The family of this 147-nucleotide RNA sequence from Hibiscus trionum is "small nucleolar RNA snoR135". Rfam links the family to the GO terms nucleolus and RNA processing. It scores 134 bits against the family's covariance model.
RNA sequence: AGAGCAGGGAUAGUGUGUAUCGACGUUGUGCAAAUUUCCAAUGCGCUCUGUUCGAAAGAGUUUCCUGCUAAAUUGAUUUGGGGAAGAUGGGCAGUUGUGCUUCAUGUUUAUCCUUGAUUCUUUUCAACAAUCAUCUUCCCCGUAUUU
Numbered sequence: 001a002g003a004g005c006a007g008g009g010a011u012a013g014u015g016u017g018u019a020u021c022g023a024c025g026u027u028g029u030g031c032a033a034a035u036u037u038c039c040a041a042u043g044c045g046c047u048c049u050g051u052u053c054g055a056a057a058g059a060g061u062u063u064c065c066u067g068c069u070a071a072a073u074u075g076a077u078u079u080g081g082g083g084a085a086g087a088u089g090g091g092c093a094g095u096u097g098u099g100c101u102u103c104a105u106g107u108u109u110a111u112c113c114u115u116g117a118u119u120c121u122u123u124u125c126a127a128c129a130a131u132c133a134u135c136u137u138c139c140c141c142g143u144a145u146u147u
Base pairs, nucleotide, nucleotide: 004068005067006066007065008064009063010062015046016045017044018043019042020041080141081140082139083138084137085136086135087134088133089132090131094128095127096126097125